[Rfam]
RNA sequence: GACCCACGAGGAUAGAGUAAGUCGCCGCGAGGCGGCUGGCCGGGAAAUCGCCG
Numbered sequence: 001g002a003c004c005c006a007c008g009a010g011g012a013u014a015g016a017g018u019a020a021g022u023c024g025c026c027g028c029g030a031g032g033c034g035g036c037u038g039g040c041c042g043g044g045a046a047a048u049c050g051c052c053g
Stems, first nucleotide, its partner, number of pairs: 020037007
Notes: leuA-Halobacteria RNA: a 53-nucleotide RNA from Halocalculus aciditolerans. The match comes from Rfam's covariance-model search (60 bits). The base pairs follow the family's consensus structure, which is taken from published work.